Overview
The family of this 319-nucleotide sequence from Saccharomyces kudriavzevii is "Small nucleolar RNA snR83". The family's RNA type in Rfam is H/ACA-box small nucleolar RNA.
RNA sequence: ACCCAAAAACAUCAAGAAAAGCCUUUCAAUAAAUUGCUUUUUUCUUGGCGGAAAAGAGGGAAAAAUGGUGGGGAGAAGGGUCCCGGAACUUAUGUUUCAGGCCCUUCUUUUUCCUUUUUUUUUUACUUUUUUCCUCCCGGAAAAUAAUUUUUCAGGACCAAUUACCGUAGUUGCGACUACACCAAUUGUUGUUCAUACCCCUACGAUUUACUUUUUGAAAACUAGUUUUUGGGAUAAUAAAGUUGUAAAAUUCCCUUUUUCCACCCCAAUUUGUAUUUCAUUCGUUACAAAAUUGGGACUAACAUUAAGGGCGACAGUU
Numbered sequence: 001a002c003c004c005a006a007a008a009a010c011a012u013c014a015a016g017a018a019a020a021g022c023c024u025u026u027c028a029a030u031a032a033a034u035u036g037c038u039u040u041u042u043u044c045u046u047g048g049c050g051g052a053a054a055a056g057a058g059g060g061a062a063a064a065a066u067g068g069u070g071g072g073g074a075g076a077a078g079g080g081u082c083c084c085g086g087a088a089c090u091u092a093u094g095u096u097u098c099a100g101g102c103c104c105u106u107c108u109u110u111u112u113c114c115u116u117u118u119u120u121u122u123u124u125a126c127u128u129u130u131u132u133c134c135u136c137c138c139g140g141a142a143a144a145u146a147a148u149u150u151u152u153c154a155g156g157a158c159c160a161a162u163u164a165c166c167g168u169a170g171u172u173g174c175g176a177c178u179a180c181a182c183c184a185a186u187u188g189u190u191g192u193u194c195a196u197a198c199c200c201c202u203a204c205g206a207u208u209u210a211c212u213u214u215u216u217g218a219a220a221a222c223u224a225g226u227u228u229u230u231g232g233g234a235u236a237a238u239a240a241a242g243u244u245g246u247a248a249a250a251u252u253c254c255c256u257u258u259u260u261c262c263a264c265c266c267c268a269a270u271u272u273g274u275a276u277u278u279c280a281u282u283c284g285u286u287a288c289a290a291a292a293u294u295g296g297g298a299c300u301a302a303c304a305u306u307a308a309g310g311g312c313g314a315c316a317g318u319u
Stems, first nucleotide, its partner, number of pairs: 003232008025219005030210007040144006047138002050136002055132006074109002078105003082101002085098005155194004159188005167180005253311005265297008273288003

Its Rfam clan is "SNORA4 clan".
Rfam links the family to the GO terms nucleolus and RNA processing.